[Rfam]
RNA sequence: CGGACCGUGUACUCCCAGACGGGGUUCUCGUCCAGGAGCGCCUGGUCGCCGAAGUAGGCGCCGUCGGCCAGGACGCCGAGGACCUGGUCGUCGCCGUAGGGGCCGGUGCCGAGCUUCUCGACCCUGCCGUGCGCCAGCAGGUAGACCUCGUCGGCCCGGCUGCCGGAGGAGGCGAUGACCUGGCCGGGGCCGAACUCCCGCCGGCGGCAGCGCCGGGCGAGCUCGGAAAGCGCCUCCUCGUCCUCGUACGACCGCAGGGCCGGCAGUUCGCCCAGCUCCGCGGGGAUGACCUCGACCCGGUCGCCCGUCUUGACGAAGGUGAUCCGGCCGUCGCCGACCGCGUAGGUCAGCCGGCGGUUCACCCGGUACGUGCCGCCCUGGACGUUCACCCACGGCAGCAUGCGCAGCAGCCAGCGGGAGCUGAUCUCCUGCAUCUGCGGCACGGACUUGGUCGUGGUGGCCAGGUUGCGCGCGGCCGCGGUGCCGAGGCUCUGCUGUGACCGCUG
Dot-bracket structure: ......(((.((..((.(..((..((.((.((....((.((...(.(((((..((.....(((.((((......(.(.(.(.(.........).).)....))....)))).....((((.((..((..(.((((.(..((.((....((....(((((((....(......)....)....))))))..))..))))..).))))..)..)).)).))))..))).....)).((...(((.((...(..(.(.((...((......)).....))).)..).)).)))...))..))).)).).)).))...)).)).)).))..)(((........)))..........(((((..(((.......))))))))..))..)).))).((.((.(.((..(.(.(.......)).)...)).).)).)).....((.(..((.(((((((.......)))))).).))..).))...(((.(..((......))..))))....
RNA: Saccharopolyspora sRNA 350
Organism: Streptomyces echinoruber